[Rfam]
RNA sequence: ACGUCUGGGUAAUCGCUGCAAUGCAAAUUGUAGAGGAAAGUCCAUGCUCGCACAGGCUGAGAUGCCUGUAGUGUUCGUGCCUAGCCCAAUAAGCUAGGGCAGCCUGUUUCAGGCUGACGGCCGGGAAAGCACCUAAGUCUUUGUGAUAUGGUGCCGGUACCUAUAAAAGUGCCACAGUGACGGAGCCUUUCUGGAAACAGGAAGGGUGGAACGAGGUAAACCCCGCGAGCGAGAAACCCAAAUUUGGUAGGGGCGCCUUUCCUAAGGAAAUGAACGAUGGGAAAGGGCAGAUUAUAUCUGAAGAUAGAUGAUUGCCGCCGGAGUACGAGAUUCUUCCAAUCGAUUGCAGUACGAAGGAACAGAACAUGGCUUACAGGA
Numbered sequence: 001a002c003g004u005c006u007g008g009g010u011a012a013u014c015g016c017u018g019c020a021a022u023g024c025a026a027a028u029u030g031u032a033g034a035g036g037a038a039a040g041u042c043c044a045u046g047c048u049c050g051c052a053c054a055g056g057c058u059g060a061g062a063u064g065c066c067u068g069u070a071g072u073g074u075u076c077g078u079g080c081c082u083a084g085c086c087c088a089a090u091a092a093g094c095u096a097g098g099g100c101a102g103c104c105u106g107u108u109u110c111a112g113g114c115u116g117a118c119g120g121c122c123g124g125g126a127a128a129g130c131a132c133c134u135a136a137g138u139c140u141u142u143g144u145g146a147u148a149u150g151g152u153g154c155c156g157g158u159a160c161c162u163a164u165a166a167a168a169g170u171g172c173c174a175c176a177g178u179g180a181c182g183g184a185g186c187c188u189u190u191c192u193g194g195a196a197a198c199a200g201g202a203a204g205g206g207u208g209g210a211a212c213g214a215g216g217u218a219a220a221c222c223c224c225g226c227g228a229g230c231g232a233g234a235a236a237c238c239c240a241a242a243u244u245u246g247g248u249a250g251g252g253g254c255g256c257c258u259u260u261c262c263u264a265a266g267g268a269a270a271u272g273a274a275c276g277a278u279g280g281g282a283a284a285g286g287g288c289a290g291a292u293u294a295u296a297u298c299u300g301a302a303g304a305u306a307g308a309u310g311a312u313u314g315c316c317g318c319c320g321g322a323g324u325a326c327g328a329g330a331u332u333c334u335u336c337c338a339a340u341c342g343a344u345u346g347c348a349g350u351a352c353g354a355a356g357g358a359a360c361a362g363a364a365c366a367u368g369g370c371u372u373a374c375a376g377g378a
Base pairs, nucleotide, nucleotide: 004378005377006376007374008316009315010314011313012312013311014310016033017032018031019030020029021028038372039371040370042369043368044367045366046365047233048232049231050230051229052069053068054067055066056065057064075228076227077226078225079224080098081097082096083095084094085093099118100116101115102114103113104112105111119223120222123162124161125160130153131152132151133150137147138146139145169221170220171217172216173215186205187204188203189202190201191200192199193198237252238251239250256286257285258284259283260282261281262280288300289299290298291297292296318357319356323352324351325350326349